[Rfam]
RNA sequence: UGGAAGUGAUGAAAUGGAGAUAGUUGGAUGUCUGUUUGAAUGGAGUGUGUGUGAUAAAUGGAAUUUAAACCAAGUCAGACUGGGGGUGGGAUGUGGGGAAUGUGUGUGCAUGUGUGUAUGGGAAAGGCUUUAAAUGGGGGCACUGAUAAUGCAGUGCUGAUUCCGGAGUGCAUCUGAGGCAUGUUGUUAAGUUCUGGGGUGCCCUUUACAACAUUGCCAAUGAUUAAAGCCCAAAACAAGCCCACCAAGACAAGCCUAGGCAUCAUAAAUCUCUAACAGGUUCAUUAACGAAAGUGAUCCUGUGAUCUGAUCCGA
Numbered sequence: 001u002g003g004a005a006g007u008g009a010u011g012a013a014a015u016g017g018a019g020a021u022a023g024u025u026g027g028a029u030g031u032c033u034g035u036u037u038g039a040a041u042g043g044a045g046u047g048u049g050u051g052u053g054a055u056a057a058a059u060g061g062a063a064u065u066u067a068a069a070c071c072a073a074g075u076c077a078g079a080c081u082g083g084g085g086g087u088g089g090g091a092u093g094u095g096g097g098g099a100a101u102g103u104g105u106g107u108g109c110a111u112g113u114g115u116g117u118a119u120g121g122g123a124a125a126g127g128c129u130u131u132a133a134a135u136g137g138g139g140g141c142a143c144u145g146a147u148a149a150u151g152c153a154g155u156g157c158u159g160a161u162u163c164c165g166g167a168g169u170g171c172a173u174c175u176g177a178g179g180c181a182u183g184u185u186g187u188u189a190a191g192u193u194c195u196g197g198g199g200u201g202c203c204c205u206u207u208a209c210a211a212c213a214u215u216g217c218c219a220a221u222g223a224u225u226a227a228a229g230c231c232c233a234a235a236a237c238a239a240g241c242c243c244a245c246c247a248a249g250a251c252a253a254g255c256c257u258a259g260g261c262a263u264c265a266u267a268a269a270u271c272u273c274u275a276a277c278a279g280g281u282u283c284a285u286u287a288a289c290g291a292a293a294g295u296g297a298u299c300c301u302g303u304g305a306u307c308u309g310a311u312c313c314g315a
Base pairs, nucleotide, nucleotide: 001314002313003312004311182213183212184211185210186209187208189206191202192201